[Rfam]
RNA sequence: AGAGCCGCCUGUAAGGGGCUCGCAGUCGAGGAGCUCCGUUCUCUUCGGCGCUCCUCAUCGUCCAUGUUGCUCAAGGAGGAUAUGGCUAUGAGAA
Dot-bracket structure: .(((((.((.....)))))))...(((((((((.......)))))))))....(((((...(((((((.(((...))))))))))..)))))..
Numbered sequence: 001a002g003a004g005c006c007g008c009c010u011g012u013a014a015g016g017g018g019c020u021c022g023c024a025g026u027c028g029a030g031g032a033g034c035u036c037c038g039u040u041c042u043c044u045u046c047g048g049c050g051c052u053c054c055u056c057a058u059c060g061u062c063c064a065u066g067u068u069g070c071u072c073a074a075g076g077a078g079g080a081u082a083u084g085g086c087u088a089u090g091a092g093a094a
Stems, first nucleotide, its partner, number of pairs: 002021005008016002025049009054092005062085007070078003

Background: A member of the RNA family "Repression of heat shock gene expression (ROSE) element" from Ensifer meliloti, 94 nucleotides long. It is annotated as an RNA thermoregulator. This family represents a 5' UTR cis-regulatory element found in heat shock mRNAs and is known as the ROSE (repression of heat shock gene expression) element. The ROSE element is a negative regulator of heat shock gene expression. The secondary structure is thought to be regulated by temperature. This regulation blocks access to the ribosome binding site under normal conditions. A reference for the family is Balsiger et al. (2004), "Replicon-specific regulation of small heat shock genes in Agrobacterium tumefaciens", J Bacteriol. It is one of the family's seed sequences. Rfam links the family to the GO terms regulation of translation and response to temperature stimulus.